This 75-nucleotide sequence from Candidatus Nitrosocosmicus oleophilus belongs to the Rfam family "tRNA". About the family: Transfer RNA (tRNA) molecules are approximately 80 nucleotides in length. The source organism's lineage runs through Archaea, Nitrososphaeria, Nitrososphaerales, Nitrososphaeraceae and Candidatus Nitrosocosmicus. Rfam classes the family as a transfer RNA. Gene Ontology term of the family: triplet codon-amino acid adaptor activity. The family's consensus secondary structure is taken from published work.

RNA sequence: GCGAGGUUGGCCCAGCCUGGUUAAGGUACGAGCUUCCCAAGCUCGGGAUCGCGGGUUCAAAUCCCGCACUUCGCA
Numbered sequence: 001g002c003g004a005g006g007u008u009g010g011c012c013c014a015g016c017c018u019g020g021u022u023a024a025g026g027u028a029c030g031a032g033c034u035u036c037c038c039a040a041g042c043u044c045g046g047g048a049u050c051g052c053g054g055g056u057u058c059a060a061a062u063c064c065c066g067c068a069c070u071u072c073g074c075a
Stems, first nucleotide, its partner, number of pairs: 001074007010027003029045005051067005